[Rfam]
RNA: Bacterial large subunit ribosomal RNA, nucleotides 9 to 562
Organism: Ureaplasma urealyticum
RNA sequence: UACUAAGAGCUUAUGGUGAAUGCCUUGGGACAAACAGGCGAUGAAGGACGUGCUAAUCUGCGAUAAGCGACGGGUAGCUGAUAAGAGGCUUUAAUCCGUUGAUCUCCGAAUGAGGAAACUCAGUCUAAUGAGAAUUAGAUUACUGUAUAAAUGAAUUCAUAAUUUAACAGAGCGAUACCUGGUGAAGUGAAACAUCUCAGUAGCCAGAGGAAAAGAAAACGAAGUGAUUCCCUGUGUAGCGGCGAGCGAAAGGGGAAGAGGCCAAACCGAAUUUCGAUUCGGGGUUGUAGGACUACAAUAUGGACUAAAAAUUGAUAGUAGAAUUGGUUGGGAAGCCAAAUCACAGAGGGUGAUAAUCCCGUAUACGAAAUUGAUUUUUUACCUAGUAGUAUCCUGAGUAGGGCGGGACACGUGAAAUCCUGUCUGAAUCCACCCAGACCAUUGGGUAAGCCUAAAUACUAGUUUGUCACCGAUAGAGCAUAGUACCGUGAGGGAACGGUGAAAAGAACCCAGAGAUGGGAGUGAAAUAGAACCUGAAACCAUAAGCUUACAAG
Numbered sequence: 001u002a003c004u005a006a007g008a009g010c011u012u013a014u015g016g017u018g019a020a021u022g023c024c025u026u027g028g029g030a031c032a033a034a035c036a037g038g039c040g041a042u043g044a045a046g047g048a049c050g051u052g053c054u055a056a057u058c059u060g061c062g063a064u065a066a067g068c069g070a071c072g073g074g075u076a077g078c079u080g081a082u083a084a085g086a087g088g089c090u091u092u093a094a095u096c097c098g099u100u101g102a103u104c105u106c107c108g109a110a111u112g113a114g115g116a117a118a119c120u121c122a123g124u125c126u127a128a129u130g131a132g133a134a135u136u137a138g139a140u141u142a143c144u145g146u147a148u149a150a151a152u153g154a155a156u157u158c159a160u161a162a163u164u165u166a167a168c169a170g171a172g173c174g175a176u177a178c179c180u181g182g183u184g185a186a187g188u189g190a191a192a193c194a195u196c197u198c199a200g201u202a203g204c205c206a207g208a209g210g211a212a213a214a215g216a217a218a219a220c221g222a223a224g225u226g227a228u229u230c231c232c233u234g235u236g237u238a239g240c241g242g243c244g245a246g247c248g249a250a251a252g253g254g255g256a257a258g259a260g261g262c263c264a265a266a267c268c269g270a271a272u273u274u275c276g277a278u279u280c281g282g283g284g285u286u287g288u289a290g291g292a293c294u295a296c297a298a299u300a301u302g303g304a305c306u307a308a309a310a311a312u313u314g315a316u317a318g319u320a321g322a323a324u325u326g327g328u329u330g331g332g333a334a335g336c337c338a339a340a341u342c343a344c345a346g347a348g349g350g351u352g353a354u355a356a357u358c359c360c361g362u363a364u365a366c367g368a369a370a371u372u373g374a375u376u377u378u379u380u381a382c383c384u385a386g387u388a389g390u391a392u393c394c395u396g397a398g399u400a401g402g403g404c405g406g407g408a409c410a411c412g413u414g415a416a417a418u419c420c421u422g423u424c425u426g427a428a429u430c431c432a433c434c435c436a437g438a439c440c441a442u443u444g445g446g447u448a449a450g451c452c453u454a455a456a457u458a459c460u461a462g463u464u465u466g467u468c469a470c471c472g473a474u475a476g477a478g479c480a481u482a483g484u485a486c487c488g489u490g491a492g493g494g495a496a497c498g499g500u501g502a503a504a505a506g507a508a509c510c511c512a513g514a515g516a517u518g519g520g521a522g523u524g525a526a527a528u529a530g531a532a533c534c535u536g537a538a539a540c541c542a543u544a545a546g547c548u549u550a551c552a553a554g
Stems, first nucleotide, its partner, number of pairs: 007549010022534001023499002027471002029468007036460002038173002046107003049062003068101007077089003112121003122141007143170004148166005178209001179207005189196002219225002228456001229256005239247002259453004267282006289395003293389004307379010318366003324339005342346001348360003401425008432447005486493002509520004